[Rfam]
RNA: Eukaryotic large subunit ribosomal RNA, nucleotides 813 to 1093
Organism: Entomortierella parvispora
RNA sequence: GAGUCUAACAUAUAUGCAAGUGUUUGGGUGGCAAACCCAUGCGCGUAAUGAAAGUGAACGUAGGUGCGAUCCGCAAGGUGCAGCAUCGACCGAUCUUGAUAUUUUUGGAUAGAUUUGAGUAAGAGCAUAUAUGCUGGGACCCGAAAGAUGGUGAACUAUGCCUGAAUAGGGUGAAGCCAGAGGAAACUCUGGUGGAGGCUCGUAGCGAUUCUGACGUGCAAAUCGAUCGUCAAAUUUGGGUAUAGGGGCGAAAGACUAAUCGAACCAUCUAGUAGCUGGUU
Numbered sequence: 001g002a003g004u005c006u007a008a009c010a011u012a013u014a015u016g017c018a019a020g021u022g023u024u025u026g027g028g029u030g031g032c033a034a035a036c037c038c039a040u041g042c043g044c045g046u047a048a049u050g051a052a053a054g055u056g057a058a059c060g061u062a063g064g065u066g067c068g069a070u071c072c073g074c075a076a077g078g079u080g081c082a083g084c085a086u087c088g089a090c091c092g093a094u095c096u097u098g099a100u101a102u103u104u105u106u107g108g109a110u111a112g113a114u115u116u117g118a119g120u121a122a123g124a125g126c127a128u129a130u131a132u133g134c135u136g137g138g139a140c141c142c143g144a145a146a147g148a149u150g151g152u153g154a155a156c157u158a159u160g161c162c163u164g165a166a167u168a169g170g171g172u173g174a175a176g177c178c179a180g181a182g183g184a185a186a187c188u189c190u191g192g193u194g195g196a197g198g199c200u201c202g203u204a205g206c207g208a209u210u211c212u213g214a215c216g217u218g219c220a221a222a223u224c225g226a227u228c229g230u231c232a233a234a235u236u237u238g239g240g241u242a243u244a245g246g247g248g249c250g251a252a253a254g255a256c257u258a259a260u261c262g263a264a265c266c267a268u269c270u271a272g273u274a275g276c277u278g279g280u281u
Stems, first nucleotide, its partner, number of pairs: 005137003009133009020044003025039005048055002063087005071078002089120002091117003094113003100107002140279002143276001147269006156245011167233001169201004176193007205230004210226002213224002247257002